A member of the RNA family "Group II catalytic intron D1-D4-5" from Clostridium aciditolerans, 202 nucleotides long.
The source organism's lineage runs through Bacteria, Bacillati, Clostridia, Eubacteriales and Clostridium.
The base pairs follow the family's consensus structure.
Rfam describes the family as follows. Group II introns are found in rRNA, tRNA and mRNA of organelles in fungi, plants and protists, and also in mRNA in bacteria.
Nucleotides: 202
Stems, first nucleotide, its partner, number of pairs: 018053006031043002034040001054194004064109004068101014116190005125181006131152003138147002158174002161172004
Number, partner (000 for none) and nucleotide at each position: 001000g002000a003000g004000a005000a006000c007000u008000g009000a010000u011000a012000a013000u014000u015000u016000g017000a018053a019052a020051a021050g022049u023048c024000a025000a026000a027000u028000g029000a030000g031043g032042g033000a034040g035000u036000a037000a038000c039000g040034u041000c042032u043031u044000g045000a046000a047000u048023g049022g050021c051020u052019u053018u054194c055193u056192c057191u058000a059000a060000u061000a062000c063000u064109c065108c066107g067106a068101a069100u070099a071098g072097c073096a074095a075094u076093u077092u078091c079090u080089u081088u082000a083000a084000u085000a086000a087000g088081a089080a090079a091078g092077a093076a094075a095074u096073u097072g098071u099070u100069a101068u102000a103000a104000g105000c106067u107066c108065g109064g110000u111000g112000a113000a114000g115000u116190c117189g118188g119187c120186u121000g122000a123000g124000a125181u126180u127179a128178c129177a130176c131152c132151c133150u134000a135000a136000g137000g138147a139146g140000c141000g142000g143000a144000a145000g146139c147138u148000c149000u150133a151132g152131g153000a154000a155000a156000a157000g158174c159173g160000a161172a162171c163170c164169a165000g166000a167000g168000g169164u170163g171162g172161u173159c174158g175000a176130g177129u178128g179127u180126a181125a182000g183000a184000u185000a186120g187119g188118u189117c190116g191057g192056g193055a194054g195000u196000c197000c198000a199000c200000a201000a202000a